[Rfam]
Nucleotides: 302
Base pairs, nucleotide, nucleotide: 001108002107003106005102006101007100008099009098010097011096013093014092018090019089024087025086026085027084028083029082030081031080032079033078035074036073037070038069039068042067043066044065045064046062047061048060117170119167120166121165122139123138124137125136127135128134140162141161142160148157149156200268202266206265207264209262210261212259213258214257221251222250223249229246230245232243233242
Number, partner (000 for none) and nucleotide at each position: 001108g002107g003106a004000u005102g006101u007100g008099a009098g010097g011096g012000c013093g014092a015000u016000c017000u018090g019089g020000c021000u022000g023000c024087g025086a026085c027084a028083u029082c030081u031080g032079u033078c034000a035074c036073c037070c038069c039068a040000u041000u042067g043066a044065u045064c046062g047061c048060c049000a050000g051000g052000g053000u054000u055000g056000a057000u058000u059000c060048g061047g062046c063000u064045g065044a066043u067042c068039u069038g070037g071000c072000u073036g074035g075000c076000u077000a078033g079032g080031c081030g082029g083028g084027u085026g086025u087024c088000c089019c090018c091000u092014u093013c094000a095000u096011c097010c098009c099008u100007c101006a102005c103000c104000g105000c106003u107002c108001c109000a110000u111000g112000u113000g114000u115000g116000u117170c118000c119167c120166u121165c122139c123138c124137g125136a126000a127135g128134c129000u130000g131000c132000g133000c134128g135127c136125u137124c138123g139122g140162u141161c142160g143000a144000a145000g146000a147000g148157g149156a150000c151000g152000a153000c154000c155000u156149u157148c158000g159000c160142c161141g162140a163000u164000a165121g166120a167119g168000a169000c170117g171000u172000a173000c174000c175000g176000u177000u178000c179000a180000u181000c182000a183000g184000u185000c186000a187000a188000g189000g190000g191000u192000a193000u194000a195000c196000g197000g198000u199000a200268g201000c202266u203000g204000c205000g206265c207264u208000c209262c210261c211000c212259u213258g214257c215000u216000a217000g218000a219000a220000c221251c222250u223249u224000u225000u226000u227000u228000a229246g230245g231000a232243c233242a234000a235000a236000a237000g238000g239000a240000a241000a242233u243232g244000g245230c246229c247000u248000c249223a250222a251221g252000u253000u254000g255000a256000g257214g258213c259212a260000a261210g262209g263000g264207a265206g266202a267000u268200u269000u270000a271000g272000g273000u274000a275000g276000a277000u278000a279000u280000u281000a282000g283000g284000a285000a286000a287000a288000a289000u290000u291000u292000c293000u294000u295000u296000a297000c298000u299000g300000a301000g302000a